[Rfam]
RNA sequence: CUGGCAUAAUGAGGAAAACCUAGAUUAGUCUGAUCUAAUUGAUGAGAAAUACCUCCUACUCAUUCUGA
Numbered sequence: 001c002u003g004g005c006a007u008a009a010u011g012a013g014g015a016a017a018a019c020c021u022a023g024a025u026u027a028g029u030c031u032g033a034u035c036u037a038a039u040u041g042a043u044g045a046g047a048a049a050u051a052c053c054u055c056c057u058a059c060u061c062a063u064u065c066u067g068a
Base pairs, nucleotide, nucleotide: 006063007062009060029046030041